The family of this 163-nucleotide RNA sequence from Aquarana catesbeiana is "U1 spliceosomal RNA". It is annotated as a spliceosomal small nuclear RNA. Rfam's curators write: U1 is a small nuclear RNA (snRNA) component of the spliceosome (involved in pre-mRNA splicing). Its 5' end forms complementary base pairs with the 5' splice junction, thus defining the 5' donor site of an intron. There are significant differences in sequence and secondary structure between metazoan and yeast U1 snRNAs, the latter being much longer (568 nucleotides as compared to 164 nucleotides in human).

[Rfam]
Nucleotides: 163
Stems, first nucleotide, its partner, number of pairs: 012122004016048006023042005049090004056083003060079003093116002095113003099109002138161005145154003
Number, partner (000 for none) and nucleotide at each position: 001000a002000u003000a004000c005000u006000u007000a008000c009000c010000u011000g012122g013121c014120a015119g016048g017047g018046g019045a020044g021043a022000u023042a024041c025040c026039a027038u028000g029000a030000u031000c032000a033000u034000g035000u036000a037000g038027g039026u040025g041024g042023u043021u044020c045019u046018c047017c048016c049090a050089g051088g052087g053000c054000a055000a056083g057082g058081c059000u060079c061078a062077g063000c064000c065000a066000u067000u068000g069000c070000a071000c072000u073000c074000c075000a076000a077062c078061u079060g080000u081058g082057c083056u084000g085000a086000c087052c088051c089050c090049u091000g092000a093116g094115a095113u096112u097111u098000c099109c100108c101000c102000a103000a104000a105000u106000g107000u108100g109099g110000g111097a112096a113095a114000c115094u116093c117000a118000a119015c120014u121013g122012c123000c124000u125000a126000a127000u128000u129000u130000g131000u132000g133000g134000u135000a136000g137000u138161g139160g140159g141158g142157a143000c144000u145154g146153c147152a148000u149000u150000c151000a152147u153146g154145c155000u156000u157142u158141c159140c160139c161138c162000u163000g